RNA sequence: UCACGCCGAGUGACAACCGGCCGUAACAGGGACGAUGGACGCGGCUAUUUUGCCGGCUUCUGGUCGCGACAUCAACGCAUCGGUACGCGCUGACAUCUAACCUGUUCUUGGC
Numbered sequence: 001u002c003a004c005g006c007c008g009a010g011u012g013a014c015a016a017c018c019g020g021c022c023g024u025a026a027c028a029g030g031g032a033c034g035a036u037g038g039a040c041g042c043g044g045c046u047a048u049u050u051u052g053c054c055g056g057c058u059u060c061u062g063g064u065c066g067c068g069a070c071a072u073c074a075a076c077g078c079a080u081c082g083g084u085a086c087g088c089g090c091u092g093a094c095a096u097c098u099a100a101c102c103u104g105u106u107c108u109u110g111g112c
Base pairs, nucleotide, nucleotide: 006111007110008109009108011023012022014020025106026105027104028103029102030101034097035096036095037094040068041067042066043065044064045063046062069084070083073082
RNA: Rhizobiales sRNA Atu_At1